[Rfam]
RNA sequence: UAAAUAAAUGGGCAAACUUGUUGAAAGGCAAGGACGCAAAGCCAUGGGUCUAAGGAAUUUGUUUCUAUGAUUGCCAGGUUGCUUAA
Numbered sequence: 001u002a003a004a005u006a007a008a009u010g011g012g013c014a015a016a017c018u019u020g021u022u023g024a025a026a027g028g029c030a031a032g033g034a035c036g037c038a039a040a041g042c043c044a045u046g047g048g049u050c051u052a053a054g055g056a057a058u059u060u061g062u063u064u065c066u067a068u069g070a071u072u073g074c075c076a077g078g079u080u081g082c083u084u085a086a
Base pairs, nucleotide, nucleotide: 012037013036017032018031019030020029021028022027040080041079042078043077045076046075047074048071049070050069055065056064057063